[Rfam]
RNA sequence: ACAACGGCUCUUUUAAGAGCCACAUACAAAUACUAACAGAGCAAC
Numbered sequence: 001a002c003a004a005c006g007g008c009u010c011u012u013u014u015a016a017g018a019g020c021c022a023c024a025u026a027c028a029a030a031u032a033c034u035a036a037c038a039g040a041g042c043a044a045c
Stems, first nucleotide, its partner, number of pairs: 006021006
A member of the RNA family "Histone 3' UTR stem-loop" from Perca fluviatilis, 45 nucleotides long.
Pairs were carried over by alignment from the consensus structure, which is taken from published work.
Its family is annotated with mRNA 3'-end processing by stem-loop binding and cleavage in the Gene Ontology.
From the family's description: The mRNAs of metazoan histone genes lack a poly-A tail. 3' end processing occurs at a site between a highly conserved stem-loop (modelled by this family) and a purine rich region around 20 nts downstream (the histone downstream element, or HDE). The stem-loop is bound by a 31 kDa stem-loop binding protein (SLBP - also termed the histone hairpin binding protein, or HBP). Together with U7 snRNA binding of the HDE, SLBP binding nucleate s the formation of the processing complex.
Rfam classes the family as a cis-regulatory element.
Lineage of the source: Eukaryota > Euteleostomi > Osteoglossocephalai > Acanthomorphata > Perca.
The family has 50 seed sequences and 44,596 matches in Rfam 15.1.